This 159-nucleotide sequence from Coriobacterium glomerans belongs to the Rfam family "M-box riboswitch aptamer (ykoK leader)".
Pairs were carried over by alignment from the consensus structure.
For this family Rfam cites "Structure and mechanism of a metal-sensing regulatory RNA" (Dann CE 3rd et al., Cell, 2007).
The match comes from Rfam's covariance-model search (114 bits).
[Rfam]
RNA sequence: UUACCGACUCGGUAGGUGAGGCUACCGCAGGGAUACGGGUUGCUGCCGCGAAGUGAUGGAGACAUCACCAGCAGGCCAGCAGUCCAUGUCGAGUGAAGGCAUGGACUAACGCAACAGCAUCGCCCUGCGAAGCCGAAACUCAGACGACGGGGUCACAGG
Numbered sequence: 001u002u003a004c005c006g007a008c009u010c011g012g013u014a015g016g017u018g019a020g021g022c023u024a025c026c027g028c029a030g031g032g033a034u035a036c037g038g039g040u041u042g043c044u045g046c047c048g049c050g051a052a053g054u055g056a057u058g059g060a061g062a063c064a065u066c067a068c069c070a071g072c073a074g075g076c077c078a079g080c081a082g083u084c085c086a087u088g089u090c091g092a093g094u095g096a097a098g099g100c101a102u103g104g105a106c107u108a109a110c111g112c113a114a115c116a117g118c119a120u121c122g123c124c125c126u127g128c129g130a131a132g133c134c135g136a137a138a139c140u141c142a143g144a145c146g147a148c149g150g151g152g153u154c155a156c157a158g159g
Stems, first nucleotide, its partner, number of pairs: 006154005011145001013097001015140003020134003026129007039115005046074001048072002055066004082106004088100003
Dot-bracket structure: .....((((((.[.(((..(((...(((((((......(((((..(.((.....((((....))))....)).).......((((..(((......])))..))))....))))).......)))))))..)))...)))....)....))))).....